RNA sequence: CCCCUGCUGAGGUAUAUGGCUUUUUAUUCCUAUGUGAUUGCUUUCCUAAUUCACAUAGGGCAGAAAGCCAUGUGCUGCACAGGGGA
Numbered sequence: 001c002c003c004c005u006g007c008u009g010a011g012g013u014a015u016a017u018g019g020c021u022u023u024u025u026a027u028u029c030c031u032a033u034g035u036g037a038u039u040g041c042u043u044u045c046c047u048a049a050u051u052c053a054c055a056u057a058g059g060g061c062a063g064a065a066a067g068c069c070a071u072g073u074g075c076u077g078c079a080c081a082g083g084g085g086a
Base pairs, nucleotide, nucleotide: 002085003084004083005082008079009078011076012075013074014073015072016071017070018069019068020067021066022065023064028060029059030058031057032056033055034054035053036052037051
Source information: The family of this 86-nucleotide sequence from Xenopus tropicalis is "mir-135 microRNA precursor family". It is one of the family's seed sequences. Its family is annotated with RISC complex and gene silencing by miRNA in the Gene Ontology. For this family Rfam cites "Identification of tissue-specific microRNAs from mouse" (Lagos-Quintana et al., Curr Biol, 2002).